RNA: RNase MRP
RNA sequence: UCCUCGCUCAAAGAAUCGCAUUCAAAGCUUACACACAGGGAAACACCUCGGUGUUUCUCUCCUUCUCUGCUUUGGGAGAAAGUCCCCGGACACCCUGACUGUCUAAACGUCCUUCGCGGACCCAGUCAGGCAAUGCGGAAACGCACCGCCAUAGAAGCAAUUCGAUAGCGGUUGAUUGCCCUAUGCCCUCCUGGUGCUGGCACUGGGCCCGACACCAGUGGCUAGAAAUAGCUGCUGGUGGAAUCAAUGGUGGUCCGGUUCAGUGCUGGAGAGGGGCUUUGAUCUGGGUUGCCUUUCGUCAUGUUUGGAUAGUCAUGCGAUUGCCUUGCUUGGGUCCUCUAUUGGAUCCGAGUGAGGUAACUCAAUGGGGCUCAUUCUUGAGGCGAGG
Numbered sequence: 001u002c003c004u005c006g007c008u009c010a011a012a013g014a015a016u017c018g019c020a021u022u023c024a025a026a027g028c029u030u031a032c033a034c035a036c037a038g039g040g041a042a043a044c045a046c047c048u049c050g051g052u053g054u055u056u057c058u059c060u061c062c063u064u065c066u067c068u069g070c071u072u073u074g075g076g077a078g079a080a081a082g083u084c085c086c087c088g089g090a091c092a093c094c095c096u097g098a099c100u101g102u103c104u105a106a107a108c109g110u111c112c113u114u115c116g117c118g119g120a121c122c123c124a125g126u127c128a129g130g131c132a133a134u135g136c137g138g139a140a141a142c143g144c145a146c147c148g149c150c151a152u153a154g155a156a157g158c159a160a161u162u163c164g165a166u167a168g169c170g171g172u173u174g175a176u177u178g179c180c181c182u183a184u185g186c187c188c189u190c191c192u193g194g195u196g197c198u199g200g201c202a203c204u205g206g207g208c209c210c211g212a213c214a215c216c217a218g219u220g221g222c223u224a225g226a227a228a229u230a231g232c233u234g235c236u237g238g239u240g241g242a243a244u245c246a247a248u249g250g251u252g253g254u255c256c257g258g259u260u261c262a263g264u265g266c267u268g269g270a271g272a273g274g275g276g277c278u279u280u281g282a283u284c285u286g287g288g289u290u291g292c293c294u295u296u297c298g299u300c301a302u303g304u305u306u307g308g309a310u311a312g313u314c315a316u317g318c319g320a321u322u323g324c325c326u327u328g329c330u331u332g333g334g335u336c337c338u339c340u341a342u343u344g345g346a347u348c349c350g351a352g353u354g355a356g357g358u359a360a361c362u363c364a365a366u367g368g369g370g371c372u373c374a375u376u377c378u379u380g381a382g383g384c385g386a387g388g
Stems, first nucleotide, its partner, number of pairs: 002388006008381004014322006022076001023074006038059009081372002084370004099109001206293003212289002215287004223281003232276002235273001260269003324357014